This 81-nucleotide sequence from Synaphobranchus kaupii belongs to the Rfam family "Mammalian CPEB3 ribozyme". Pairs were carried over by alignment from the consensus structure, which is taken from published work.
RNA sequence: CAUGUGCUACCGGGGGUCAUGGUAGAAGCGUUCACGUCGCGACCCCUGUCAGAGAUCUAACCAAUCCCUGCGAAUUCUACC
Numbered sequence: 001c002a003u004g005u006g007c008u009a010c011c012g013g014g015g016g017u018c019a020u021g022g023u024a025g026a027a028g029c030g031u032u033c034a035c036g037u038c039g040c041g042a043c044c045c046c047u048g049u050c051a052g053a054g055a056u057c058u059a060a061c062c063a064a065u066c067c068c069u070g071c072g073a074a075u076u077c078u079a080c081c
Stems, first nucleotide, its partner, number of pairs: 013046006021081007028040003050070003054066003
Description:
Taxonomically the source falls in Synaphobranchus (Eukaryota, Vertebrata, Euteleostomi, Actinopterygii). Its family is annotated with RNA nuclease activity in the Gene Ontology.